[Rfam]
RNA: rpsB sRNA
Organism: Hyphomicrobium facile
RNA sequence: CACACGCGAGACGCUCGCGCAAUGCGGAUGAAAAGCCCCGCAUCGCGCUCCGGUGGAGAUUAGCUCAAGCCUCUGAAAUGGCUGGCAAAUCUCUUCUUAAGUCUCGCGGAGGUCUAACCGGAAAAGGGAACGAUACGA
Numbered sequence: 001c002a003c004a005c006g007c008g009a010g011a012c013g014c015u016c017g018c019g020c021a022a023u024g025c026g027g028a029u030g031a032a033a034a035g036c037c038c039c040g041c042a043u044c045g046c047g048c049u050c051c052g053g054u055g056g057a058g059a060u061u062a063g064c065u066c067a068a069g070c071c072u073c074u075g076a077a078a079u080g081g082c083u084g085g086c087a088a089a090u091c092u093c094u095u096c097u098u099a100a101g102u103c104u105c106g107c108g109g110a111g112g113u114c115u116a117a118c119c120g121g122a123a124a125a126g127g128g129a130a131c132g133a134u135a136c137g138a
Stems, first nucleotide, its partner, number of pairs: 001111001003109001005108006012101001017048002025040003055094006
Dot-bracket structure: (.(.((((((.(....((......(((..........)))......))......((((((............................))))))......).))))))).)...........................